[Rfam]
Rfam assigns this 82-nucleotide sequence from Clupea harengus to the family "mir-128 microRNA precursor family".
RNA sequence: GAGAGGCAGAAUGCGGGGCCGAGGCACUGUCUGAGAUGCCUUAACAUUCUCACAGUGAACCGGUCUCUUUUUCCGCCCCUCA
Numbered sequence: 001g002a003g004a005g006g007c008a009g010a011a012u013g014c015g016g017g018g019c020c021g022a023g024g025c026a027c028u029g030u031c032u033g034a035g036a037u038g039c040c041u042u043a044a045c046a047u048u049c050u051c052a053c054a055g056u057g058a059a060c061c062g063g064u065c066u067c068u069u070u071u072u073c074c075g076c077c078c079c080u081c082a
Base pairs, nucleotide, nucleotide: 006076007075009073010072015067016066017065018064019063020062021061025057026056027055028054029053030052033051034050035049